[Rfam]
RNA sequence: AAAAGAGAGAGGGUUGACACUUCUCUUUCUUCUCCACUAACCAAACACAGGCUGUUUGUGUAUGGGUUAGUGGAGAAGAAAGAGAAGUGUCAACC
Numbered sequence: 001a002a003a004a005g006a007g008a009g010a011g012g013g014u015u016g017a018c019a020c021u022u023c024u025c026u027u028u029c030u031u032c033u034c035c036a037c038u039a040a041c042c043a044a045a046c047a048c049a050g051g052c053u054g055u056u057u058g059u060g061u062a063u064g065g066g067u068u069a070g071u072g073g074a075g076a077a078g079a080a081a082g083a084g085a086a087g088u089g090u091c092a093a094c095c
Stems, first nucleotide, its partner, number of pairs: 012095003016091003032075011044056003
Dot-bracket structure: ...........(((.(((.............(((((((((((.(((.......)))........))))))))))).............))).)))
RNA: Flavivirus 3' UTR cis-acting replication element (CRE)
Organism: Adiantum capillus-veneris